A member of the RNA family "Glycine riboswitch aptamer" from Agromyces rhizosphaerae, 91 nucleotides long.
Taxonomically the source falls in Agromyces (Bacteria, Bacillati, Actinomycetes, Micrococcales).
Its family is annotated with glycine biosynthetic process in the Gene Ontology.
From the family's description: This family represents the bacterial glycine riboswitch.
RNA sequence: CCGCUCUGAAAAGCGGAUGCCACGAGCAUCCCGCCCACGGUGAAAGCGACCCCACGGGUCGUGAAACUCUCAGGCAGAUGACAGAGGGGGA
Numbered sequence: 001c002c003g004c005u006c007u008g009a010a011a012a013g014c015g016g017a018u019g020c021c022a023c024g025a026g027c028a029u030c031c032c033g034c035c036c037a038c039g040g041u042g043a044a045a046g047c048g049a050c051c052c053c054a055c056g057g058g059u060c061g062u063g064a065a066a067c068u069c070u071c072a073g074g075c076a077g078a079u080g081a082c083a084g085a086g087g088g089g090g091a
Stems, first nucleotide, its partner, number of pairs: 001089002004086005015031004033075003037070001040069001042067001046062005